[Rfam]
RNA sequence: GACCGACAUCAGUGAUUCGUUCUGCGAACCGUUGCCGACCGCGAGGUAGGAGUGCAUUCCCAGCUCUUUCAUCUGCUGUUCGCCGAUGACGCGGGUGAUGACAUUUUUGCUGUAGCUGUCUGCCAGCUGACGCGCCUGUGAGGCCAGAUAGGCGGCGUUACAGAUGUUUGGCGGCAUGUUGCCGAGGUCUUUCGC
Numbered sequence: 001g002a003c004c005g006a007c008a009u010c011a012g013u014g015a016u017u018c019g020u021u022c023u024g025c026g027a028a029c030c031g032u033u034g035c036c037g038a039c040c041g042c043g044a045g046g047u048a049g050g051a052g053u054g055c056a057u058u059c060c061c062a063g064c065u066c067u068u069u070c071a072u073c074u075g076c077u078g079u080u081c082g083c084c085g086a087u088g089a090c091g092c093g094g095g096u097g098a099u100g101a102c103a104u105u106u107u108u109g110c111u112g113u114a115g116c117u118g119u120c121u122g123c124c125a126g127c128u129g130a131c132g133c134g135c136c137u138g139u140g141a142g143g144c145c146a147g148a149u150a151g152g153c154g155g156c157g158u159u160a161c162a163g164a165u166g167u168u169u170g171g172c173g174g175c176a177u178g179u180u181g182c183c184g185a186g187g188u189c190u191u192u193c194g195c
Base pairs, nucleotide, nucleotide: 005189006188007187012032013031014030016028017027018026019025020024033043034042035041050059051058062077063076064075078135079134081132082131084129085128087126091123092122093121094120095119096118097117099112100111102109103108136163137162138161140159141158143156144155145154167186168185169184170183171182172181
Dot-bracket structure: ....(((....(((.(((((...))))).)))(((.....)))......((......))..(((..........)))((.((.((.(...(((((((.((.((....)).))....)))))))..).)).)).))(((.((.(((........))).)).)))...((((((........)))))))))......